[Rfam]
RNA sequence: AAGAUUUUUUGACUUCGGUAUCGGUAUCUCUCAUCGUCAUUUGGUUUUCUCCCCCUCACCUCAGCCGCCAAGCUGAGGUUUUU
Numbered sequence: 001a002a003g004a005u006u007u008u009u010u011g012a013c014u015u016c017g018g019u020a021u022c023g024g025u026a027u028c029u030c031u032c033a034u035c036g037u038c039a040u041u042u043g044g045u046u047u048u049c050u051c052c053c054c055c056u057c058a059c060c061u062c063a064g065c066c067g068c069c070a071a072g073c074u075g076a077g078g079u080u081u082u083u
Stems, first nucleotide, its partner, number of pairs: 058079008
The family of this 83-nucleotide sequence from Nostoc sp. T09 is "Photosynthesis regulatory RNA1". The organism belongs to Nostoc, within Bacteria. From the family's description: Formerly known as Syr1 discovered in Synechocystis sp PCC 6803, is a regulatory factor controlling photosynthetic functions. PsrR1 interacts with the ribosome binding regions of several photosynthesis-related mRNAs. In particular, psaL mRNA is processed by RNase E only in the presence of PsrR1. Its family is annotated with regulation of photosynthesis and regulation of translation in the Gene Ontology.